[Rfam]
RNA sequence: CUUUGGCUAUCCAAAGCGUCGCCGGUGCCACGGAGUUAGGCCGUGGGUUCCAGAUUGUGAAAAUGCCCGGAG
Numbered sequence: 001c002u003u004u005g006g007c008u009a010u011c012c013a014a015a016g017c018g019u020c021g022c023c024g025g026u027g028c029c030a031c032g033g034a035g036u037u038a039g040g041c042c043g044u045g046g047g048u049u050c051c052a053g054a055u056u057g058u059g060a061a062a063a064u065g066c067c068c069g070g071a072g
Stems, first nucleotide, its partner, number of pairs: 001016006022070004028046006
Rfam assigns this 72-nucleotide RNA sequence to the family "RAGATH-16 RNA".
Pairs were carried over by alignment from the consensus structure, which is taken from published work.
It is one of the family's seed sequences.